RNA sequence: AGCUUUUUUCGCCCAAGCGGAGCUCGACCGCCGACGGAAGAGAUGACGUCGUUCAUCGAUGCGCACCGGGAGGAGUACGGGGUCGAGCCGAUCUGCGAGGUGCUACCGAUCGCCCCG
Dot-bracket structure: ................((((.......))))..............................................(((((......((.((.(.(......).).)).)))))))
A member of the RNA family "ALIL pseudoknot" from Bipolaricaulis sanaerobius, 117 nucleotides long. NCBI's taxonomy places the organism under Bacteria, Bacteria candidate phyla, Candidatus Bipolaricaulota, Bipolaricaulales (SeqCode), Bipolaricaulis (SeqCode). It scores 109 bits against the family's covariance model. For this family Rfam cites "Apical loop-internal loop RNA pseudoknots: a new type of stimulator of -1 translational frameshifting in bacteria" (Mazauric et al., J Biol Chem, 2008).